[Rfam]
RNA: isrG Hfq binding RNA
RNA sequence: CUACAGCAGCAGCUACAGCAGCAGCUACAGCAGCAGCUACAGUAGCUUCAGCAGUAGCUACAGCAGCAGCUACAGUAGCAGCUACAGUAGCUGCUGCUGCUGCUGUAGCUGCUGCUGUAGCUGCUGCUGUAGCUGCUGCUGCUGCUGUAGCUGCUGCUGUAGCUGCUGCUGCUGCUGUAGCUGCUGCUGCUGCUGUAGCUGCUGCUGUAGCUGCUGCUGUAGCUGCUGCUGCUGUAGCUGCUGCUGCUACUU
Numbered sequence: 001c002u003a004c005a006g007c008a009g010c011a012g013c014u015a016c017a018g019c020a021g022c023a024g025c026u027a028c029a030g031c032a033g034c035a036g037c038u039a040c041a042g043u044a045g046c047u048u049c050a051g052c053a054g055u056a057g058c059u060a061c062a063g064c065a066g067c068a069g070c071u072a073c074a075g076u077a078g079c080a081g082c083u084a085c086a087g088u089a090g091c092u093g094c095u096g097c098u099g100c101u102g103c104u105g106u107a108g109c110u111g112c113u114g115c116u117g118u119a120g121c122u123g124c125u126g127c128u129g130u131a132g133c134u135g136c137u138g139c140u141g142c143u144g145c146u147g148u149a150g151c152u153g154c155u156g157c158u159g160u161a162g163c164u165g166c167u168g169c170u171g172c173u174g175c176u177g178u179a180g181c182u183g184c185u186g187c188u189g190c191u192g193c194u195g196u197a198g199c200u201g202c203u204g205c206u207g208u209a210g211c212u213g214c215u216g217c218u219g220u221a222g223c224u225g226c227u228g229c230u231g232c233u234g235u236a237g238c239u240g241c242u243g244c245u246g247c248u249a250c251u252u
Base pairs, nucleotide, nucleotide: 006244007243008242009241010240012238013237014236017233018232019231020230021214022213023212024211025210026209027208028207031204032203033202034201035200036199037198054061055060062098063097064096065095066094070090071089072088075085076084077083078082099193100192102190103189105187106186107185108184109183111181112180113179114178115177118174119173120172121171123169124168126166127165129136130135141163142162147157148156149155219226220225